[Rfam]
Annotation
This 387-nucleotide RNA sequence from Candidatus Finniella inopinata belongs to the Rfam family "Bacterial RNase P class A". A search with the family's covariance model found it, with a score of 296 bits. The organism belongs to Candidatus Finniella, within Bacteria.

RNA sequence: UCAGGUGACUGGGUGAUCGCUGUUUAUUCAGAGGAAAGUCCGGGCUCCAUGCAAACAGGGUGCCGGAUAACGUCCGGCGGGGCUUGCUUUUAGCAGGUUUUAGGGAAAGUGCCACAGAAAAUAGACCGCUUGUAACAGAGUAAGGGUGAAAAGGUGUGGUAAGAGCGCACCGCGCGUUUGGUAACAGGCGUGGCAGGGUAAACCCCACCCGGAGCAAGACCAAAUAGGAACAAGUUAUUAUUGUACCGCAAGGCACAAUAAUACGGUGGGUUUGCACGCCGUUGUUCGGGUAGGUCGCUAGAGGUGAUUGGUAACAAUCAUCCCAGAUGAAUGAUCAUCCAAGGAUUUUAUCCUGGACAAAACCCGGCUUAUAGGUCACCUGAAUAU
Numbered sequence: 001u002c003a004g005g006u007g008a009c010u011g012g013g014u015g016a017u018c019g020c021u022g023u024u025u026a027u028u029c030a031g032a033g034g035a036a037a038g039u040c041c042g043g044g045c046u047c048c049a050u051g052c053a054a055a056c057a058g059g060g061u062g063c064c065g066g067a068u069a070a071c072g073u074c075c076g077g078c079g080g081g082g083c084u085u086g087c088u089u090u091u092a093g094c095a096g097g098u099u100u101u102a103g104g105g106a107a108a109g110u111g112c113c114a115c116a117g118a119a120a121a122u123a124g125a126c127c128g129c130u131u132g133u134a135a136c137a138g139a140g141u142a143a144g145g146g147u148g149a150a151a152a153g154g155u156g157u158g159g160u161a162a163g164a165g166c167g168c169a170c171c172g173c174g175c176g177u178u179u180g181g182u183a184a185c186a187g188g189c190g191u192g193g194c195a196g197g198g199u200a201a202a203c204c205c206c207a208c209c210c211g212g213a214g215c216a217a218g219a220c221c222a223a224a225u226a227g228g229a230a231c232a233a234g235u236u237a238u239u240a241u242u243g244u245a246c247c248g249c250a251a252g253g254c255a256c257a258a259u260a261a262u263a264c265g266g267u268g269g270g271u272u273u274g275c276a277c278g279c280c281g282u283u284g285u286u287c288g289g290g291u292a293g294g295u296c297g298c299u300a301g302a303g304g305u306g307a308u309u310g311g312u313a314a315c316a317a318u319c320a321u322c323c324c325a326g327a328u329g330a331a332u333g334a335u336c337a338u339c340c341a342a343g344g345a346u347u348u349u350a351u352c353c354u355g356g357a358c359a360a361a362a363c364c365c366g367g368c369u370u371a372u373a374g375g376u377c378a379c380c381u382g383a384a385u386a387u
Stems, first nucleotide, its partner, number of pairs: 001383010011372001012339007020031003036370003040367005045214004054273002058210005063077005078103001079101009104205002109203002111199003126145002128141004153171006172194001173192008218296004228287006265280004303322008